[Rfam]
RNA: Small nucleolar RNA SNORA43
RNA sequence: UAUGUCCUUGCACCUGUCAUUUGCAUGGUGGCUACUGUGUCAUCUUUGUUCAUUCAGGGCAGAGAGCAAAAGGCUAUGUCUACAUUCAGUGUUCUGAAACCCAUGAACACUCAGAAUGAUUAAUAGCCUGACAUAA
Dot-bracket structure: ..((((((.(..............((((.................)))).....)))))))..........(((......((..((...(((((..........)))))...))..)).......)))........